[Rfam]
RNA sequence: GGCGUAAAGAGCUCGUAGGUGGUUUGUCGCGUUGUUCGUGAAAUCUCACGGCUUAACUGUGAGCGUGCGGGCGAUACGGGCAGACUAGAGUACUGCAGGGGAGACUGGAAUUCCUGGUGUAGCGGUGGAAUGCGCAGAUAUCAGGAGGAACACCGGUGGCGAAGGCGGGUCUCUGGGCAGUAACUGACGCUGAGGAGCGAAAGCGUGGGGAGCGAACAGGAUUAGAUACCCUGGUAGUCCACGCCGUAAACGGUGGGUACUAGGUGUGGGUUUCCUUCCUUGGGAUCCGUGCCGUAGCUAACGCAUUAAGUACCCCGCCUGGGGAGUACGGCCGCAAGGCUAAAACUCAAAGGAAU
Number, nucleotide and partner (000 for none) at each position: 001g319002g318003c317004g000005u000006a000007a000008a000009g316010a000011g198012c197013u196014c195015g000016u192017a000018g191019g190020u189021g000022g085023u084024u083025u082026g081027u080028c079029g000030c078031g077032u074033u073034g072035u071036u070037c069038g068039u067040g066041a000042a000043a000044u000045c063046u062047c061048a060049c059050g058051g057052c000053u000054u000055a000056a000057c051058u050059g049060u048061g047062a046063g045064c000065g000066u040067g039068c038069g037070g036071g035072c034073g033074a032075u000076a000077c031078g030079g028080g027081c026082a025083g024084a023085c022086u000087a000088g000089a185090g184091u183092a181093c180094u179095g178096c177097a000098g000099g000100g174101g173102a172103g171104a170105c169106u168107g151108g000109a000110a000111u147112u146113c145114c144115u143116g142117g141118u140119g000120u000121a000122g133123c132124g131125g000126u000127g000128g000129a000130a000131u124132g123133c122134g000135c000136a000137g000138a000139u000140a118141u117142c116143a115144g114145g113146a112147g111148g000149a000150a000151c107152a000153c000154c000155g000156g000157u000158g000159g166160c165161g000162a000163a000164g000165g160166c159167g000168g106169g105170u104171c103172u102173c101174u100175g000176g000177g096178c095179a094180g093181u092182a000183a091184c090185u089186g000187a000188c000189g020190c019191u018192g016193a000194g000195g014196a013197g012198c011199g000200a000201a000202a000203g244204c243205g242206u241207g240208g239209g000210g000211a000212g238213c237214g000215a000216a000217c233218a232219g231220g230221a000222u000223u000224a000225g000226a000227u000228a000229c000230c220231c219232u218233g217234g000235u000236a000237g213238u212239c208240c207241a206242c205243g204244c203245c000246g000247u000248a000249a000250a000251c000252g000253g000254u000255g315256g314257g313258u312259a311260c310261u000262a000263g293264g292265u291266g290267u289268g288269g287270g286271u285272u284273u283274c282275c000276u000277u000278c000279c000280u000281u000282g274283g273284g272285a271286u270287c269288c268289g267290u266291g265292c264293c263294g000295u000296a000297g304298c303299u000300a000301a000302c000303g298304c297305a000306u000307u000308a000309a000310g260311u259312a258313c257314c256315c255316c009317g003318c002319c001320u000321g348322g347323g346324g000325a000326g000327u000328a000329c000330g341331g340332c339333c338334g000335c000336a000337a000338g333339g332340c331341u330342a000343a000344a000345a000346c323347u322348c321349a000350a000351a000352g000353g000354a000355a000356u000